The family of this 66-nucleotide sequence from Chlorocebus sabaeus is "U7 small nuclear RNA". Rfam 15.1 lists 10,439 matches to the family in 569 species. Animal histone pre-mRNAs are spliced by a different mechanism than nuclear pre-mRNAs and self-splicing introns. This processing involves the U7 snRNP, which contains only one RNA species: U7. The 5' end of U7 RNA is thought to base-pair to a conserved spacer element downstream of the cleavage site in histone pre-mRNA. This family contains a number of annotated U7 pseudogenes. The match comes from Rfam's covariance-model search (49 bits).
RNA sequence: GAGUGUUACAGUUCUUUUUGAAUUUGUCUAGCAGGUUUUCUGUAUUUUUACCAGAACUUCACCCUG
Numbered sequence: 001g002a003g004u005g006u007u008a009c010a011g012u013u014c015u016u017u018u019u020g021a022a023u024u025u026g027u028c029u030a031g032c033a034g035g036u037u038u039u040c041u042g043u044a045u046u047u048u049u050a051c052c053a054g055a056a057c058u059u060c061a062c063c064c065u066g
Stems, first nucleotide, its partner, number of pairs: 034063003038056004042051003
Dot-bracket structure: .................................(((.(((((((....))).))))....)))...